[Rfam]
RNA sequence: UUGGAGGAUUUGAAGACUUCAACUUGCAAACUUGAAGAAUUUGAAGACUUCAACUAGAAUAUUUGGAGGAUAUGAAAACUUCAACU
Numbered sequence: 001u002u003g004g005a006g007g008a009u010u011u012g013a014a015g016a017c018u019u020c021a022a023c024u025u026g027c028a029a030a031c032u033u034g035a036a037g038a039a040u041u042u043g044a045a046g047a048c049u050u051c052a053a054c055u056a057g058a059a060u061a062u063u064u065g066g067a068g069g070a071u072a073u074g075a076a077a078a079c080u081u082c083a084a085c086u
Stems, first nucleotide, its partner, number of pairs: 001084006009076004014071001017068005025059001027057001032053006

Rfam assigns this 86-nucleotide RNA from Solanum commersonii to the family "MIR8024 microRNA precursor family". Gene Ontology terms of the family: miRNA-mediated post-transcriptional gene silencing and RISC complex. The match comes from Rfam's covariance-model search (87 bits).